RNA sequence: GGAGGGAAAAGGAAGAGAUGAGGGUCAAAGAGCAGCCGACAUGGGAACAUGCAGGAAAGCUUAAGCUAUGGUAAACUCCUGGAGGUGGCCAGGUGGGAUCAUGCAUGCUUCAAGCUUUCCUAAUGCCUCCCAUGCCUAUUAUUCUUCGGUCCUCCUUCCUUUUUCUUUUGGCU
Numbered sequence: 001g002g003a004g005g006g007a008a009a010a011g012g013a014a015g016a017g018a019u020g021a022g023g024g025u026c027a028a029a030g031a032g033c034a035g036c037c038g039a040c041a042u043g044g045g046a047a048c049a050u051g052c053a054g055g056a057a058a059g060c061u062u063a064a065g066c067u068a069u070g071g072u073a074a075a076c077u078c079c080u081g082g083a084g085g086u087g088g089c090c091a092g093g094u095g096g097g098a099u100c101a102u103g104c105a106u107g108c109u110u111c112a113a114g115c116u117u118u119c120c121u122a123a124u125g126c127c128u129c130c131c132a133u134g135c136c137u138a139u140u141a142u143u144c145u146u147c148g149g150u151c152c153u154c155c156u157u158c159c160u161u162u163u164u165c166u167u168u169u170g171g172c173u
Stems, first nucleotide, its partner, number of pairs: 009164005015158003020154003025149002028146005034140001038136001040134007048125003054120009
RNA: MIR2118 microRNA precursor family
Organism: Miscanthus lutarioriparius